[Rfam]
RNA sequence: UACGGAGUUUUCUAGGGUUCCGCGGUCAGUCAUUUGGCCGGUCAGGACCGAGAGAAAACCCACGACCACGGUCGUGUACACGGAGGGAUAAAAGCCCGGGAGGA
Numbered sequence: 001u002a003c004g005g006a007g008u009u010u011u012c013u014a015g016g017g018u019u020c021c022g023c024g025g026u027c028a029g030u031c032a033u034u035u036g037g038c039c040g041g042u043c044a045g046g047a048c049c050g051a052g053a054g055a056a057a058a059c060c061c062a063c064g065a066c067c068a069c070g071g072u073c074g075u076g077u078a079c080a081c082g083g084a085g086g087g088a089u090a091a092a093a094g095c096c097c098g099g100g101a102g103g104a
Stems, first nucleotide, its partner, number of pairs: 007059006015049002020046002022043001023040006061076006079099001081102001085097003
Dot-bracket structure: ......((((((..((...(((((((((......))))))..).)).))....)))))).((((((....))))))..(.[...(((.......))).)..]..
RNA: Guanidine-I riboswitch aptamer
Organism: Brevibacillus brevis